[Rfam]
Shown here is a 590-nucleotide part of an RNA from Methanopyrus kandleri, a member of the family "Archaeal large subunit ribosomal RNA".

RNA sequence: CCCCCGGCGGGAAGCGAAGACCCCGUGGAGCUUUACCGCAGCCUGCCGUUGGGGCACGGCUGCGGGUGUAUAGCGUAGGUGGGAGCCGUUACUCAGGGGCGGCCGCCAGGCCGUCCCCGAGGCGCCCAUGGAACACCACCCUCCCGCGGCUGUGCCCCUAACCCGGGCCGAGAAGGCCCGGGGACAGCGGUUGGUGGGCGGUUUGGCUGGGGCGGCACGCCCCCGAGAAGGCAUCGGGGGCGCCCAAAGGUCGGCUCAGGCGGGUCAGAAAUCCGCCGUAGAGUGCAAGGGCAAAAGCCGGCCUGACUGGGUCCCGCACAAUAAGGGACCCAGGCGGGAAACCGUGGCCUAGCGAACCCCGGUGCCGCCCCGGUGGCGGCCCGGGAUGACAGAAAAGCUACCCCGGGGAUAACAGGGUGGUCGCGGGCAAGAGCCCACAUCGACCCCGCGGCUUGCUACCUCGAUGUCGGCUCUCCCCAUCCUGGCGGUGCAGCAGCCGCCAAGGGUGGGGUUGUUCGCCCAUUAAAGGGGAACGUGAGCUGGGUUUAGACCGUCGUGAGACAGGUCGGUCGCUAUCUGCCGGGGGUGUU
Numbered sequence: 001c002c003c004c005c006g007g008c009g010g011g012a013a014g015c016g017a018a019g020a021c022c023c024c025g026u027g028g029a030g031c032u033u034u035a036c037c038g039c040a041g042c043c044u045g046c047c048g049u050u051g052g053g054g055c056a057c058g059g060c061u062g063c064g065g066g067u068g069u070a071u072a073g074c075g076u077a078g079g080u081g082g083g084a085g086c087c088g089u090u091a092c093u094c095a096g097g098g099g100c101g102g103c104c105g106c107c108a109g110g111c112c113g114u115c116c117c118c119g120a121g122g123c124g125c126c127c128a129u130g131g132a133a134c135a136c137c138a139c140c141c142u143c144c145c146g147c148g149g150c151u152g153u154g155c156c157c158c159u160a161a162c163c164c165g166g167g168c169c170g171a172g173a174a175g176g177c178c179c180g181g182g183g184a185c186a187g188c189g190g191u192u193g194g195u196g197g198g199c200g201g202u203u204u205g206g207c208u209g210g211g212g213c214g215g216c217a218c219g220c221c222c223c224c225g226a227g228a229a230g231g232c233a234u235c236g237g238g239g240g241c242g243c244c245c246a247a248a249g250g251u252c253g254g255c256u257c258a259g260g261c262g263g264g265u266c267a268g269a270a271a272u273c274c275g276c277c278g279u280a281g282a283g284u285g286c287a288a289g290g291g292c293a294a295a296a297g298c299c300g301g302c303c304u305g306a307c308u309g310g311g312u313c314c315c316g317c318a319c320a321a322u323a324a325g326g327g328a329c330c331c332a333g334g335c336g337g338g339a340a341a342c343c344g345u346g347g348c349c350u351a352g353c354g355a356a357c358c359c360c361g362g363u364g365c366c367g368c369c370c371c372g373g374u375g376g377c378g379g380c381c382c383g384g385g386a387u388g389a390c391a392g393a394a395a396a397g398c399u400a401c402c403c404c405g406g407g408g409a410u411a412a413c414a415g416g417g418u419g420g421u422c423g424c425g426g427g428c429a430a431g432a433g434c435c436c437a438c439a440u441c442g443a444c445c446c447c448g449c450g451g452c453u454u455g456c457u458a459c460c461u462c463g464a465u466g467u468c469g470g471c472u473c474u475c476c477c478c479a480u481c482c483u484g485g486c487g488g489u490g491c492a493g494c495a496g497c498c499g500c501c502a503a504g505g506g507u508g509g510g511g512u513u514g515u516u517c518g519c520c521c522a523u524u525a526a527a528g529g530g531g532a533a534c535g536u537g538a539g540c541u542g543g544g545u546u547u548a549g550a551c552c553g554u555c556g557u558g559a560g561a562c563a564g565g566u567c568g569g570u571c572g573c574u575a576u577c578u579g580c581c582g583g584g585g586g587u588g589u590u
Stems, first nucleotide, its partner, number of pairs: 001586008010578003014573002022407004027403002029399005035202004042194002045191004051158016068141001078140005085123003100113005162182008205218001206216003219241006244347002250302006256282002259277006283292002307333009335344001337342001358385005364380005416457003420454001421451007431441002468543001469541004473535001474532005481506002485500005509521004549567004553562003
Dot-bracket structure: ((((((((.(((.((......((((.(((((((.((((...((.((((..((((((((((((((((.(.........(((((..(((............(((((....))))).......)))............)))))).))))))))))))))))...((((((((.....)))))))).....)))).))....))))..((((.....))).)((((((...........))))))..((....((((((((.((((((.......))))))...))((......))....))))))....(((((((((.........))))))))).(.(....).).))..........(((((.(((((.......)))))))))).........)))))..))))))........(((.((((((((...((.......))...)))))))..))))..........(((((((((((..((..(((((......)))))....))..((((.....))))......)))))..)..)))).).....(((((((....))).))))....))..)))))))))))....